mir-137 microRNA precursor family: a 72-nucleotide RNA from Lytechinus variegatus. The family is grouped with related families in Rfam's "mir-137 clan". The organism belongs to Lytechinus, within Eukaryota. Rfam 15.1 lists 1,138 matches to the family in 797 species. The family's consensus secondary structure was predicted with RNAalifold.

Nucleotides: 072
Stems, first nucleotide, its partner, number of pairs: 002072002007066002011062012024050007031042002
Number, partner (000 for none) and nucleotide at each position: 001000a002072u003071g004000a005000u006000u007066a008065c009000a010000g011062g012061u013060a014059u015058u016057c017056u018055c019054g020053a021052g022051u023000g024050a025049a026048u027047a028046a029045u030044a031042c032041a033000g034000a035000a036000c037000a038000g039000c040000c041032u042031g043000a044030u045029g046028u047027u048026a049025u050024u051022g052021c053020u054019u055018g056017a057016g058015a059014a060013u061012a062011c063000a064000c065008g066007u067000a068000g069000u070000a071003u072002a